Source information
The record is a 74-nucleotide RNA from Bactrocera dorsalis, which matches "mir-87 microRNA precursor family" in Rfam. Rfam links the family to the GO terms miRNA-mediated post-transcriptional gene silencing and RISC complex. Rfam 15.1 lists 420 matches to the family in 285 species. The literature on the family includes a 2003 paper in Dev Biol by Sempere et al., "Temporal regulation of microRNA expression in Drosophila melanogaster mediated by hormonal signals and broad-Complex gene activity".

RNA sequence: CAUUCGCGCCUGUAUCUUGCUGAACCGUAUCUUUGCUUUCUUCCGGUUGAGCAAAAUUUCAGGUGUGUGAGAAA
Numbered sequence: 001c002a003u004u005c006g007c008g009c010c011u012g013u014a015u016c017u018u019g020c021u022g023a024a025c026c027g028u029a030u031c032u033u034u035g036c037u038u039u040c041u042u043c044c045g046g047u048u049g050a051g052c053a054a055a056a057u058u059u060c061a062g063g064u065g066u067g068u069g070a071g072a073a074a
Base pairs, nucleotide, nucleotide: 003071004070005069006068007065008064009063010062011061012060014057015056017054018053020051021050023048025046026045027044